[Rfam]
RNA sequence: AUAAGCUAACAACAAGCAAUUUUCAUUCUUUCCCUUUUUUGAAUGAAAAUCCCAAAACUCCCUUUUGACCAAUGUGGUUUACUCCCUUUUUCCACAUUGGUUUUUUA
Numbered sequence: 001a002u003a004a005g006c007u008a009a010c011a012a013c014a015a016g017c018a019a020u021u022u023u024c025a026u027u028c029u030u031u032c033c034c035u036u037u038u039u040u041g042a043a044u045g046a047a048a049a050u051c052c053c054a055a056a057a058c059u060c061c062c063u064u065u066u067g068a069c070c071a072a073u074g075u076g077g078u079u080u081a082c083u084c085c086c087u088u089u090u091u092c093c094a095c096a097u098u099g100g101u102u103u104u105u106u107a
Base pairs, nucleotide, nucleotide: 019050020049021048022047023046024045025044026043027042028041069100070099071098072097073096074095075094076093077092
Dot-bracket structure: ..................((((((((((............))))))))))..................(((((((((..............))))))))).......
Source information: Rfam assigns this 107-nucleotide RNA from Listeria kieliensis to the family "Listeria LhrC". The family's RNA type in Rfam is small RNA. Its Rfam clan is "LhrC clan". It scores 112 bits against the family's covariance model. This RNA was identifed by screening for RNA molecules which co-immunoprecipitated with the RNA chaperone Hfq. However, neither the stability nor the activity of LhrC is depending on the presence of Hfq. LhrC is transcribed from the intergenic region between the protein coding genes cysK, a putative cysteine synthase and sul, a putative dihydropteroate synthase.